This 76-nucleotide sequence from Crocodylus porosus belongs to the Rfam family "Mammalian CPEB3 ribozyme".
The family has 14 seed sequences and 5,706 matches in Rfam 15.1.
[Rfam]
RNA sequence: CACACAUUUGAGGGCACAUAGCAGAAGCAAUCAUGGUGCAGCCAUGUCAGAUUCCAACAAAUCUGCAAAUUCUACU
Numbered sequence: 001c002a003c004a005c006a007u008u009u010g011a012g013g014g015c016a017c018a019u020a021g022c023a024g025a026a027g028c029a030a031u032c033a034u035g036g037u038g039c040a041g042c043c044a045u046g047u048c049a050g051a052u053u054c055c056a057a058c059a060a061a062u063c064u065g066c067a068a069a070u071u072c073u074a075c076u
Base pairs, nucleotide, nucleotide: 012043013042015041020076021075023073024072025071026070027039028038029037048065049064050063051062052061053060
Dot-bracket structure: ...........[[.[....((.(((((((.......))).]]]....((((((......))))))....)))).))